[Rfam]
A member of the RNA family "Purine riboswitch aptamer" from Clostridium putrefaciens, 100 nucleotides long.
RNA sequence: AUAUUCGUAAACAGUAAUGCUCAUAUAGUUUUGGCAAUAAGGGCCAAGAGUUUCUACCAGACACCAUAAAUGUCUGACUAUGAGUGAAUCUUUAGAAUUA
Numbered sequence: 001a002u003a004u005u006c007g008u009a010a011a012c013a014g015u016a017a018u019g020c021u022c023a024u025a026u027a028g029u030u031u032u033g034g035c036a037a038u039a040a041g042g043g044c045c046a047a048g049a050g051u052u053u054c055u056a057c058c059a060g061a062c063a064c065c066a067u068a069a070a071u072g073u074c075u076g077a078c079u080a081u082g083a084g085u086g087a088a089u090c091u092u093u094a095g096a097a098u099u100a
Base pairs, nucleotide, nucleotide: 018086019085020084021083022082023081024080025079029049030048031047032046033045034044035043058076059075060074061073062072063071
Source information
Riboswitches are metabolite binding domains within certain messenger RNAs that serve as precision sensors for their corresponding targets. The source organism's lineage runs through Bacteria, Bacillati, Bacillota, Clostridiaceae and Clostridium.